[Rfam]
RNA: Acido-Lenti-1 RNA
Organism: Desulfonema magnum
RNA sequence: GCCGGUAAUGAAUUGCCGGACUAUUUUCAGUCGUCCCUCCGGGACU
Numbered sequence: 001g002c003c004g005g006u007a008a009u010g011a012a013u014u015g016c017c018g019g020a021c022u023a024u025u026u027u028c029a030g031u032c033g034u035c036c037c038u039c040c041g042g043g044a045c046u
Base pairs, nucleotide, nucleotide: 002019003018004017005016006015007014008013033045034044035043036042037041